Overview:
The family of this 49-nucleotide RNA sequence is "nhaA-I RNA". About the family: Acidobacteria, Alphaproteobacteria, Betaproteobacteria and Gammaproteobacteria, Verrucomicrobia, cand. division NC10. Rfam's curators put it in the seed alignment.
[Rfam]
RNA sequence: GGGUGCCAUAUAAAAAUGUGGCAGGUAUGGUGAAGGCCGGGCCGCCUCA
Numbered sequence: 001g002g003g004u005g006c007c008a009u010a011u012a013a014a015a016a017u018g019u020g021g022c023a024g025g026u027a028u029g030g031u032g033a034a035g036g037c038c039g040g041g042c043c044g045c046c047u048c049a
Stems, first nucleotide, its partner, number of pairs: 005022007031049003035046003
Dot-bracket structure: ....(((((((....)))))))........(((.(((......))))))